The record is a 100-nucleotide sequence from Noviherbaspirillum saxi, which matches "TPP riboswitch aptamer (THI element)" in Rfam. A search with the family's covariance model found it, with a score of 60 bits.
RNA sequence: GUUCCAUGCUAGGGGUCCUGAAGACGAUGUCUUUGGGUGAGAGACACCCUCCGUACCUGAUCUGGAUAACGCCAGCGUAGGGAAGCGCAAAGCCGCACUU
Numbered sequence: 001g002u003u004c005c006a007u008g009c010u011a012g013g014g015g016u017c018c019u020g021a022a023g024a025c026g027a028u029g030u031c032u033u034u035g036g037g038u039g040a041g042a043g044a045c046a047c048c049c050u051c052c053g054u055a056c057c058u059g060a061u062c063u064g065g066a067u068a069a070c071g072c073c074a075g076c077g078u079a080g081g082g083a084a085g086c087g088c089a090a091a092g093c094c095g096c097a098c099u100u
Stems, first nucleotide, its partner, number of pairs: 007087004011050004016044001017037008056081004062075004